RNA sequence: GGCCCCGCGCAGGGAGAGACCGGCCAGGAGCCGGCGCCGAAGGAGCAACCGCCCCGGAAACUCUCAGGCACAAAGGACCGGCGCGGGACG
Numbered sequence: 001g002g003c004c005c006c007g008c009g010c011a012g013g014g015a016g017a018g019a020c021c022g023g024c025c026a027g028g029a030g031c032c033g034g035c036g037c038c039g040a041a042g043g044a045g046c047a048a049c050c051g052c053c054c055c056g057g058a059a060a061c062u063c064u065c066a067g068g069c070a071c072a073a074a075g076g077a078c079c080g081g082c083g084c085g086g087g088a089c090g
Stems, first nucleotide, its partner, number of pairs: 006085005012079002020034004036069003039065002043063003049057002

Rfam assigns this 90-nucleotide sequence from Sphingomonas sp. Root710 to the family "Glycine riboswitch aptamer". The pairing is the family consensus, mapped onto this sequence. Rfam's curators write: This family represents the bacterial glycine riboswitch. Glycine riboswitches usually consist of two metabolite-binding aptamers domains with similar structures in tandem. The aptamers cooperatively bind glycine to regulate the expression of downstream genes. In Bacillus subtilis, this riboswitch is found upstream of the gcvT operon which controls glycine degradation. It scores 50 bits against the family's covariance model.